[Rfam]
RNA sequence: GAUGGAGCAAAAGGAAAAUCUAAUAUAAUUUAAGCGAUAUGGGCUUUGAAGUUUCUACUGAACACCGUAAAAGGUUCAACUAUUAGAGAAAUAAAUAGAGCG
Number, nucleotide and partner (000 for none) at each position: 001g000002a000003u000004g000005g000006a000007g000008c000009a000010a000011a000012a000013g000014g000015a000016a000017a000018a000019u087020c086021u085022a084023a083024u082025a081026u000027a000028a000029u050030u049031u048032a046033a045034g044035c043036g000037a000038u000039a000040u000041g000042g000043g035044c034045u033046u032047u000048g031049a030050a029051g000052u000053u000054u000055c000056u000057a000058c000059u078060g077061a076062a075063c074064a000065c000066c000067g000068u000069a000070a000071a000072a000073g000074g063075u062076u061077c060078a059079a000080c000081u025082a024083u023084u022085a021086g020087a019088g000089a000090a000091a000092u000093a000094a000095a000096u000097a000098g000099a000100g000101c000102g000

Purine riboswitch aptamer: a 102-nucleotide RNA from Desemzia incerta. Its family is annotated with purine nucleobase biosynthetic process in the Gene Ontology. The base pairs follow the family's consensus structure, which is taken from published work.